The family of this 75-nucleotide RNA from Stackebrandtia endophytica is "tRNA".
The family's RNA type in Rfam is transfer RNA.
Transfer RNA (tRNA) molecules are approximately 80 nucleotides in length.
The family's consensus secondary structure is taken from published work.
RNA sequence: CGGGUUGUGGCCUAGUUUGGUUAGGGCGCCACACUGGGGGUGUGGAGGUCGUGGGUUCAAAUCCCGCCAACCCGA
Numbered sequence: 001c002g003g004g005u006u007g008u009g010g011c012c013u014a015g016u017u018u019g020g021u022u023a024g025g026g027c028g029c030c031a032c033a034c035u036g037g038g039g040g041u042g043u044g045g046a047g048g049u050c051g052u053g054g055g056u057u058c059a060a061a062u063c064c065c066g067c068c069a070a071c072c073c074g075a
Stems, first nucleotide, its partner, number of pairs: 001074007010027004029045005051067005
Dot-bracket structure: (((((((..((((..........)))).(((((.......))))).....(((((.......)))))))))))).